[Rfam]
RNA sequence: UGGCGCCCAAUGGUGUGGCUUCGGAUACGCGGGAAUUCGUGAGGGAAGAGGCGUGUAAGUGUUCGGCCGAAGGAAAGAAAAGUGAAAGUCAGUUCGACAAAGUUCGCCGGGAGCCUGCCACGCCGUUCUUAAAGGUACAGUAGCGCCUAACUAUGGGACAAGAAUUAAGUAAGCAUAAAGUUUUUGUUAAGCAAUUAAAAGAAGCUUUAAAGACACGGGGAGUAAAGGUUAAGAGUAAUGAUCUUUUUAAGUUUUCUGACCUUAUUAAGGACACCUGUCCGU
Dot-bracket structure: .....(((....(((..........)))..)))....(.(.......).).....................................(((..((.....((...((..((.......)).))...))...)).)))....(.(..((((....)))).).)....(((((.................................)).)))......((((((((..((((((.......))))))......))))))))........(.((((....)))).)
This 282-nucleotide sequence from Sciurus vulgaris belongs to the Rfam family "Mason-Pfizer monkey virus packaging signal". Rfam describes the family as follows. This family represents a group of sequences that are related to the Mason-Pfizer monkey virus (MPMV) packaging signal. Rfam links the family to the GO term viral genome packaging. A reference for the family is Mustafa et al. (2004), "Mutational analysis of the predicted secondary RNA structure of the Mason-Pfizer monkey virus packaging signal", Virus Res. A search with the family's covariance model found it, with a score of 175 bits.